Notes: Rfam assigns this 529-nucleotide part of an RNA from Dimorphilus gyrociliatus to the family "Microsporidia small subunit ribosomal RNA". Clan: SSU clan. The match comes from Rfam's covariance-model search (1178 bits). On this family, see Yusupov et al., Science 2001: "Crystal structure of the ribosome at 5.5 A resolution". The organism belongs to Dimorphilus, within Eukaryota.

Nucleotides: 529
Stems, first nucleotide, its partner, number of pairs: 001404002003401003007398007016388002020351001022349003025268001027266008035257002041056004065252005071246001075105005086096004109240002112238004118234001119232001120228003123224003130168002133165003136145003147160001149158002174216004179186002189207002192204004272307006312341001317336007357380006364373001409493001412489002415486001418482005424476001427473007436464004442458002446454001498521010
Number, partner (000 for none) and nucleotide at each position: 001404u002403g003401a004400c005399g006000g007398a008397a009396g010395a011394a012393c013392a014000c015000c016388a017387c018000a019000a020351g021000g022349a023348g024347u025268g026000g027266a028265g029264u030263g031262u032261g033260c034259g035257g036256c037000u038000u039000a040000a041056u042055u043054u044053g045000a046000c047000u048000c049000a050000a051000c052000g053044c054043g055042g056041g057000a058000c059000a060000g061000c062000u063000u064000a065252c066251c067250a068249g069248u070000g071246c072000c073000g074000a075105c076104g077103a078102c079101c080000g081000g082000a083000u084000g085000a086096g087095c088094g089093u090000g091000g092000u093089a094088c095087g096086c097000g098000a099000u100000a101079g102078g103077u104076c105075g106000g107000a108000a109240a110239g111000u112238g113237g114236u115235g116000c117000a118234u119232g120228g121227c122226c123224g124223u125222u126000a127000a128000c129000g130168a131167c132000a133165a134164a135163u136145g137144g138143a139000g140000u141000g142000a143138u144137c145136c146000u147160u148000g149158g150157g151000u152000u153000a154000a155000g156000u157150c158149u159000g160147g161000u162000a163135a164134u165133u166000a167131g168130u169000g170000a171000g172000a173000c174216c175215c176214u177213c178000g179186a180185c181000c182000g183000g184000a185180g186179u187000g188000a189207c190206u191000g192204g193203c194202g195201c196000g197000c198000c199000a200000a201195g202194c203193g204192c205000a206190g207189g208000a209000a210000g211000g212000a213177g214176g215175g216174g217000u218000c219000a220000a221000g222125a223124a224123c225000a226122g227121g228120u229000c230000a231000g232119u233000g234118a235115u236114g237113c238112c239110c240109u241000u242000a243000g244000a245000u246071g247000g248069a249068c250067u251066g252065g253000g254000c255000u256036g257035c258000a259034c260033g261032c262031g263030c264029a265028c266027u267000a268025c269000a270000g271000u272307g273306g274305u275304c276303g277302c278000a279000g280000g281000a282000g283000g284000a285000a286000g287000g288000a289000a290000g291000g292000a293000g294000a295000g296000a297000g298000a299000a300000a301000u302277g303276c304275g305274a306273u307272c308000g309000a310000g311000a312341g313000g314000g315000a316000a317336u318335g319334u320333g321332c322331c323330c324000u325000g326000g327000a328000a329000g330323g331322g332321g333320c334319g335318c336317a337000g338000g339000a340000a341312c342000g343000a344000g345000g346000a347024a348023u349022u350000g351020c352000u353000a354000g355000u356000a357380a358379u359378c360377g361376c362375u363000g364373u365000c366000u367000c368000a369000g370000u371000a372000u373364g374000g375362a376361g377360c378359g379358a380357u381000g382000a383000a384000u385000g386000a387017g388016u389000c390000c391000c392013u393012g394011u395010u396009c397008u398007u399005u400004g401003u402000a403002c404001a405000c406000a407000c408000c409493g410000c411000c412489c413488g414000u415486c416000g417000c418482u419481a420480u421479c422478g423000a424476a425000g426000a427473u428472g429471g430470a431469a432468u433467c434000a435000g436464g437463u438462g439461c440000g441000a442458a443457c444000g445000a446454a447000c448000a449000a450000c451000g452000a453000g454446u455000g456000a457443g458442u459000g460000a461439g462438c463437g464436c465000a466000g467433g468432g469431u470430u471429c472428u473427a474000g475000a476424u477000c478422u479421g480420a481419u482418a483000c484000a485000a486415g487000u488413c489412g490000u491000a492000a493409c494000a495000a496000g497000g498521c499520a500519a501518c502517g503516g504515u505514a506513g507512g508000a509000g510000a511000a512507c513506c514505u515504g516503u517502c518501g519500u520499u521498g522000g523000a524000u525000c526000a527000g528000c529000g